[Rfam]
Rfam assigns this 144-nucleotide sequence from Tritonibacter multivorans to the family "FMN riboswitch aptamer (RFN element)". The organism belongs to Tritonibacter, within Bacteria. The base pairs follow the family's consensus structure, which is taken from published work. The match comes from Rfam's covariance-model search (104 bits).
RNA sequence: AGGCGUUCUCAGGGCGGGGCGAAAUUCCCCACCGGCGGUAAGCAGCAAUGUAAGCCCGCGAGCGCCUCGGGCACUGCCCGGGGGUCAGCAGAUCAGGUGCAACUCCUGAGCCGACGGUAACAGUCCGGAUGGAAGAGAGACAGC
Numbered sequence: 001a002g003g004c005g006u007u008c009u010c011a012g013g014g015c016g017g018g019g020c021g022a023a024a025u026u027c028c029c030c031a032c033c034g035g036c037g038g039u040a041a042g043c044a045g046c047a048a049u050g051u052a053a054g055c056c057c058g059c060g061a062g063c064g065c066c067u068c069g070g071g072c073a074c075u076g077c078c079c080g081g082g083g084g085u086c087a088g089c090a091g092a093u094c095a096g097g098u099g100c101a102a103c104u105c106c107u108g109a110g111c112c113g114a115c116g117g118u119a120a121c122a123g124u125c126c127g128g129a130u131g132g133a134a135g136a137g138a139g140a141c142a143g144c
Stems, first nucleotide, its partner, number of pairs: 006139005017029003031124002033113002035059004054111002062089002093109005115127003